A member of the RNA family "Small nucleolar RNA U2-19" from Alligator sinensis, 84 nucleotides long. Rfam classes the family as a C/D-box small nucleolar RNA. Its family is annotated with RNA processing and nucleolus in the Gene Ontology. The literature on the family includes a 2004 paper in Curr Biol by Tycowski et al., "Guide RNAs with 5' Caps and Novel Box C/D snoRNA-like Domains for Modification of snRNAs in Metazoa". The base pairs follow the family's consensus structure, which is taken from published work. The organism belongs to Alligator, within Eukaryota.
RNA sequence: GAUCUGUGAUGAGAGAGAGCCAAAUCUGAGCACCAAAAGAUCAGCUGAUCUACAUGGUGUUAUGAUCUGUGUACAGUUCUGGGA
Numbered sequence: 001g002a003u004c005u006g007u008g009a010u011g012a013g014a015g016a017g018a019g020c021c022a023a024a025u026c027u028g029a030g031c032a033c034c035a036a037a038a039g040a041u042c043a044g045c046u047g048a049u050c051u052a053c054a055u056g057g058u059g060u061u062a063u064g065a066u067c068u069g070u071g072u073a074c075a076g077u078u079c080u081g082g083g084a
Stems, first nucleotide, its partner, number of pairs: 030060005038051004